[Rfam]
RNA sequence: AUGACAAUAUCCUAAUUGGAGUUGUACAAUGGUAAAAUAUAUGAUUUUAAAAUUAUUUAAAUAAAAAAGCUUUGAUCUGUGAGACAAAGACUGUAUG
Numbered sequence: 001a002u003g004a005c006a007a008u009a010u011c012c013u014a015a016u017u018g019g020a021g022u023u024g025u026a027c028a029a030u031g032g033u034a035a036a037a038u039a040u041a042u043g044a045u046u047u048u049a050a051a052a053u054u055a056u057u058u059a060a061a062u063a064a065a066a067a068a069g070c071u072u073u074g075a076u077c078u079g080u081g082a083g084a085c086a087a088a089g090a091c092u093g094u095a096u097g
Stems, first nucleotide, its partner, number of pairs: 002028002004025005010020002068092002070089005076084003
pan motif: a 97-nucleotide RNA sequence from Alkalibaculum sporogenes. The match comes from Rfam's covariance-model search (36 bits). The base pairs follow the family's consensus structure, which is taken from published work. Taxonomically the source falls in Alkalibaculum (Bacteria, Bacillati, Clostridia, Eubacteriaceae). It is annotated as a cis-regulatory element.